Rfam assigns this 62-nucleotide RNA sequence from Mus musculus to the family "Gag/pol translational readthrough site". Pairs were carried over by alignment from the consensus structure, which is taken from published work. Gene Ontology term of the family: viral translational readthrough.

RNA sequence: UAGGAGAGACAGGGUUUGGACACCCUCCCAGAACCCAGGAUAACUCUGAAAGUGGAGGGGAG
Numbered sequence: 001u002a003g004g005a006g007a008g009a010c011a012g013g014g015u016u017u018g019g020a021c022a023c024c025c026u027c028c029c030a031g032a033a034c035c036c037a038g039g040a041u042a043a044c045u046c047u048g049a050a051a052g053u054g055g056a057g058g059g060g061a062g
Stems, first nucleotide, its partner, number of pairs: 008041001010039001012036004016031004023059005

Lineage of the source: Eukaryota > Eumetazoa > Sarcopterygii > Euarchontoglires > Mus.